[Rfam]
RNA sequence: AAAAAAGCUUUCUAGGGUUCCGUUUAAAGAUUGUUCUUUAAAGACUGGUCCGAGAGGAAGCGUACAGCCUUGACGGUUGUAUACACGGAAGGACAAAAGCCUGGGAGAU
Number, nucleotide and partner (000 for none) at each position: 001a000002a000003a000004a000005a000006a000007g061008c060009u059010u058011u057012c056013u000014a000015g051016g050017g000018u000019u000020c048021c047022g045023u042024u041025u040026a039027a038028a037029g000030a000031u000032u000033g000034u000035u000036c000037u028038u027039u026040a025041a024042a023043g000044a000045c022046u000047g021048g020049u000050c016051c015052g000053a000054g000055a000056g012057g011058a010059a009060g008061c007062g082063u081064a080065c079066a078067g077068c076069c075070u000071u000072g000073a000074c000075g069076g068077u067078u066079g065080u064081a063082u062083a000084c104085a000086c107087g000088g000089a000090a102091g101092g100093a000094c000095a000096a000097a000098a000099g000100c092101c091102u090103g000104g084105g000106a000107g086108a000109u000
RNA: Guanidine-I riboswitch aptamer
Organism: Bacillus sp. MRMR6